Overview
The record is a 72-nucleotide RNA sequence, which matches "DUF3800-IX RNA" in Rfam. Rfam's curators write: Actinobacteria, Firmicutes (1 example), Nitrospirae, Proteobacteria, Verrucomicrobia (1 example). By type it is a small RNA.
[Rfam]
RNA sequence: GACCCUGUUUUCGAAUUGUCACCGUAUGGUGCGCGUUCUAAGCAAACGCUUAGAUAGAAACCAGGGUCGCUU
Numbered sequence: 001g002a003c004c005c006u007g008u009u010u011u012c013g014a015a016u017u018g019u020c021a022c023c024g025u026a027u028g029g030u031g032c033g034c035g036u037u038c039u040a041a042g043c044a045a046a047c048g049c050u051u052a053g054a055u056a057g058a059a060a061c062c063a064g065g066g067u068c069g070c071u072u
Stems, first nucleotide, its partner, number of pairs: 001068007009060004017035003020031004037054005